[Rfam]
RNA sequence: CUCUUAUCAAGAGAGGUGGAGGGACUGGCCCAAUGAAGCCCAGCAACCAUCCUUAUUUGGGAAAGGUGCUAAUUCCAGCAAUACUUAUGUAUUGAAAGAUGAGAU
Numbered sequence: 001c002u003c004u005u006a007u008c009a010a011g012a013g014a015g016g017u018g019g020a021g022g023g024a025c026u027g028g029c030c031c032a033a034u035g036a037a038g039c040c041c042a043g044c045a046a047c048c049a050u051c052c053u054u055a056u057u058u059g060g061g062a063a064a065g066g067u068g069c070u071a072a073u074u075c076c077a078g079c080a081a082u083a084c085u086u087a088u089g090u091a092u093u094g095a096a097a098g099a100u101g102a103g104a105u
Base pairs, nucleotide, nucleotide: 002104003103004102005101006100007099008098013041015040016039017038021031022030023029025078026077027076028075042070043069044068045067047066048065050062051061052060074097079094080093081092082091083090084089
Dot-bracket structure: .(((((((....(.(((...(((.[[[[)))......))))((((.((.(((.......)))..))))))...(]]]]((((((....))))))..)))))))).